[Rfam]
RNA sequence: AGUAGAGUAGGUAUUGUGCGUUAAGUGUCAUGGGAUGGGAAGUUGUCCAUGGACGAAGGUAAUCAAAGACGAUCCACGAUGCAAUAUUGCGUCCGCUACU
Numbered sequence: 001a002g003u004a005g006a007g008u009a010g011g012u013a014u015u016g017u018g019c020g021u022u023a024a025g026u027g028u029c030a031u032g033g034g035a036u037g038g039g040a041a042g043u044u045g046u047c048c049a050u051g052g053a054c055g056a057a058g059g060u061a062a063u064c065a066a067a068g069a070c071g072a073u074c075c076a077c078g079a080u081g082c083a084a085u086a087u088u089g090c091g092u093c094c095g096c097u098a099c100u
Stems, first nucleotide, its partner, number of pairs: 001100005010088009019078003025054002028052007038094003042090001058075002
Dot-bracket structure: (((((....((((((((((((...((.(((((((...[[[.[...)))))))))...((..............))))).))))))))).].]]].)))))

Notes
THF (Tetrahydrofolate) riboswitch aptamer: a 100-nucleotide RNA sequence from Firmicutes bacterium CAG:424. Tetrahydrofolate (THF) riboswitch was first reported for Ames et al. as an RNA motif in 5' untranslated (5'-UTR)regions of folate transport and biosynthesis genes in Firmicutes genomes. A search with the family's covariance model found it, with a score of 68 bits. Lineage of the source: Bacteria > Bacillati > Bacillota. The base pairs follow the family's consensus structure, which is taken from published work. On this family, see Huang et al., Proc Natl Acad Sci U S A 2011: "Long-range pseudoknot interactions dictate the regulatory response in the tetrahydrofolate riboswitch". Rfam 15.1 lists 747 matches to the family in 747 species.